[Rfam]
RNA sequence: CUUUGCAUUACAUCCUCGCGACUAAUGACAACCUUUAUCCUGCCCAUGCAGGUAAAGCCUCUCAUUAGCCGCGCGAACCUCUGCAAUGAAAGAUCAUAAUUAAAACAACAAUACACUACUCUGUUUUUCUGACGCUUCCUAGAAGAAAGGGGCCUGCAAAAGGCCCCUUCCU
Numbered sequence: 001c002u003u004u005g006c007a008u009u010a011c012a013u014c015c016u017c018g019c020g021a022c023u024a025a026u027g028a029c030a031a032c033c034u035u036u037a038u039c040c041u042g043c044c045c046a047u048g049c050a051g052g053u054a055a056a057g058c059c060u061c062u063c064a065u066u067a068g069c070c071g072c073g074c075g076a077a078c079c080u081c082u083g084c085a086a087u088g089a090a091a092g093a094u095c096a097u098a099a100u101u102a103a104a105a106c107a108a109c110a111a112u113a114c115a116c117u118a119c120u121c122u123g124u125u126u127u128u129c130u131g132a133c134g135c136u137u138c139c140u141a142g143a144a145g146a147a148a149g150g151g152g153c154c155u156g157c158a159a160a161a162g163g164c165c166c167c168u169u170c171c172u
Stems, first nucleotide, its partner, number of pairs: 001092004006088002011083002017075004022068007098124001149167006

SraG RNA: a 172-nucleotide RNA from Brenneria goodwinii. Rfam describes the family as follows. This RNA was discovered in E. coli during a large scale screen. Evidence was found for specific cleavage of this RNA. On this family, see Argaman et al., Curr Biol 2001: "Novel small RNA-encoding genes in the intergenic regions of Escherichia coli". NCBI's taxonomy places the organism under Bacteria, Pseudomonadati, Pseudomonadota, Gammaproteobacteria, Brenneria.